Rfam assigns this 245-nucleotide RNA from Tieghemiomyces parasiticus to the family "ACEA small nucleolar RNA U3". The match comes from Rfam's covariance-model search (55 bits).
RNA sequence: UCGACUGUACUCUACAGGAUCAUGUUCGUAGUUAAUAUGUUCUGAUCUCUCAGUACUUUAGAUGGAAAACCAGCUGGUUGAUGACACGUUGUACGCCAUCCGUAAAGGGAGGCUGUGGUCGCUACGCCAUUUAGGUGUGGUAGACCCUCGAUGAUCUUGCGUUGCUAGUACUCGCUGCCUGUGCCCUUGUGCCGGGUGGUUGACGUCUAGCUUUCUUGCAAGGGUGGUCGUACCGUCUGACAGCC
Numbered sequence: 001u002c003g004a005c006u007g008u009a010c011u012c013u014a015c016a017g018g019a020u021c022a023u024g025u026u027c028g029u030a031g032u033u034a035a036u037a038u039g040u041u042c043u044g045a046u047c048u049c050u051c052a053g054u055a056c057u058u059u060a061g062a063u064g065g066a067a068a069a070c071c072a073g074c075u076g077g078u079u080g081a082u083g084a085c086a087c088g089u090u091g092u093a094c095g096c097c098a099u100c101c102g103u104a105a106a107g108g109g110a111g112g113c114u115g116u117g118g119u120c121g122c123u124a125c126g127c128c129a130u131u132u133a134g135g136u137g138u139g140g141u142a143g144a145c146c147c148u149c150g151a152u153g154a155u156c157u158u159g160c161g162u163u164g165c166u167a168g169u170a171c172u173c174g175c176u177g178c179c180u181g182u183g184c185c186c187u188u189g190u191g192c193c194g195g196g197u198g199g200u201u202g203a204c205g206u207c208u209a210g211c212u213u214u215c216u217u218g219c220a221a222g223g224g225u226g227g228u229c230g231u232a233c234c235g236u237c238u239g240a241c242a243g244c245c
Stems, first nucleotide, its partner, number of pairs: 002039002006034001009032003016026002019023001046066001050065003054061001073244004091233005096227006105158004115147001117145001121141003162221004167216001

From the family's description: Small nucleolar RNAs (snoRNAs) are involved in the processing and modification of rRNA in the nucleolus.
It is annotated as a C/D-box small nucleolar RNA.